[Rfam]
The family of this 91-nucleotide RNA from Ornithinimicrobium ciconiae is "SAM riboswitch aptamer (S box leader)".
Its Rfam clan is "SAM clan".
About the family: The SAM riboswitch is found upstream of a number of genes which code for proteins involved in methionine or cysteine biosynthesis in Gram-positive bacteria.
RNA sequence: CACCCAUCCAGAGCGGCCGAGAGAUCUGGCUCGUUGACGCCGCAGCAACCAUCCACGUCCGGACAGGUGCUCACGCCAGGAUCGAUGGAGG
Numbered sequence: 001c002a003c004c005c006a007u008c009c010a011g012a013g014c015g016g017c018c019g020a021g022a023g024a025u026c027u028g029g030c031u032c033g034u035u036g037a038c039g040c041c042g043c044a045g046c047a048a049c050c051a052u053c054c055a056c057g058u059c060c061g062g063a064c065a066g067g068u069g070c071u072c073a074c075g076c077c078a079g080g081a082u083c084g085a086u087g088g089a090g091g
Base pairs, nucleotide, nucleotide: 001091004088005087006086007085008084013043014042015041016040017039021032022031023030026079027078028077029076044071045070046069047068049067050066052063053062054061075083